This 149-nucleotide sequence from Leucobacter sp. Ag1 belongs to the Rfam family "FMN riboswitch aptamer (RFN element)". Lineage of the source: Bacteria > Bacillati > Actinomycetes > Micrococcales > Leucobacter. The RFN element is a highly conserved domain that is found frequently in the 5'-untranslated regions of prokaryotic mRNAs that encode for flavin mononucleotide (FMN) biosynthesis and transport proteins.

[Rfam]
RNA sequence: CGUAGGUUCCGGGGUCGGUGAGAAUCCGAACCGGCGGUGAGAGUCCGCGACCCCCGCAUUCGCGGGGUUGAACCGGUGGAAUUCCGGUACCGACGGUGAUGGGCGGCAGUUUCGACUGCGCGCCCGAGUCCGGAUGGAAGGAACGUGGG
Numbered sequence: 001c002g003u004a005g006g007u008u009c010c011g012g013g014g015u016c017g018g019u020g021a022g023a024a025u026c027c028g029a030a031c032c033g034g035c036g037g038u039g040a041g042a043g044u045c046c047g048c049g050a051c052c053c054c055c056g057c058a059u060u061c062g063c064g065g066g067g068u069u070g071a072a073c074c075g076g077u078g079g080a081a082u083u084c085c086g087g088u089a090c091c092g093a094c095g096g097u098g099a100u101g102g103g104c105g106g107c108a109g110u111u112u113c114g115a116c117u118g119c120g121c122g123c124c125c126g127a128g129u130c131c132g133g134a135u136g137g138a139a140g141g142a143a144c145g146u147g148g149g
Stems, first nucleotide, its partner, number of pairs: 003147002006144005016028003032092002034048004043090002052067002072088005094132003